[Rfam]
RNA: Repression of heat shock gene expression (ROSE) element
Organism: Rhizobium sp. LC145
RNA sequence: CCGGCUGCCGAAACGGGGCCGGCUCGUCAAUCCGGCGUCGAGGACGUCUGAACUUGACGCCGUCUUGUACCCAUGUUGCUUCAAAGGAGGAUGUGGCUAUGAGAA
Number, nucleotide and partner (000 for none) at each position: 001c022002c021003g020004g019005c018006u017007g000008c016009c015010g000011a000012a000013a000014c000015g009016g008017g006018g005019c004020c003021g002022g001023c000024u000025c000026g000027u000028c000029a000030a000031u000032c000033c062034g061035g060036c059037g058038u057039c056040g055041a054042g000043g000044a000045c000046g000047u000048c000049u000050g000051a000052a000053c000054u041055u040056g039057a038058c037059g036060c035061c034062g033063u000064c103065u102066u101067g100068u099069a098070c000071c096072c095073a094074u093075g092076u091077u090078g000079c089080u088081u087082c000083a000084a000085a000086g000087g081088a080089g079090g077091a076092u075093g074094u073095g072096g071097c000098u069099a068100u067101g066102a065103g064104a000105a000